[Rfam]
RNA sequence: GAGCGGAGAUGAAUGCACAUUUGGUUCUGACACCUCUUAUGUCAACGGUCAUUUCCGGGCCGUAAUGAUUCCACAAAUGUGAUCUGAGCUC
Numbered sequence: 001g002a003g004c005g006g007a008g009a010u011g012a013a014u015g016c017a018c019a020u021u022u023g024g025u026u027c028u029g030a031c032a033c034c035u036c037u038u039a040u041g042u043c044a045a046c047g048g049u050c051a052u053u054u055c056c057g058g059g060c061c062g063u064a065a066u067g068a069u070u071c072c073a074c075a076a077a078u079g080u081g082a083u084c085u086g087a088g089c090u091c
Base pairs, nucleotide, nucleotide: 001091002090003089004088
Small nucleolar RNA sn2903: a 91-nucleotide RNA from Strongylus vulgaris. The match comes from Rfam's covariance-model search (72 bits). The literature on the family includes a 2006 paper in Nucleic Acids Res by Zemann et al., "Evolution of small nucleolar RNAs in nematodes". By type it is a C/D-box small nucleolar RNA. Lineage of the source: Eukaryota > Opisthokonta > Metazoa > Bilateria > Strongylus. Pairs were carried over by alignment from the consensus structure, which was predicted with WAR.